msiK RNA: a 59-nucleotide sequence from Streptomyces daliensis.
Rfam 15.1 lists 1,374 matches to the family in 1,364 species.
Taxonomically the source falls in Streptomyces (Bacteria, Actinomycetota, Actinomycetes, Kitasatosporales).

RNA sequence: GGACCACCUCCCUUUACGACGGAUCGUCCGGCACGUACCUGCCGGUGAAGGAGACAACA
Numbered sequence: 001g002g003a004c005c006a007c008c009u010c011c012c013u014u015u016a017c018g019a020c021g022g023a024u025c026g027u028c029c030g031g032c033a034c035g036u037a038c039c040u041g042c043c044g045g046u047g048a049a050g051g052a053g054a055c056a057a058c059a
Stems, first nucleotide, its partner, number of pairs: 010051002013048001015047002028045006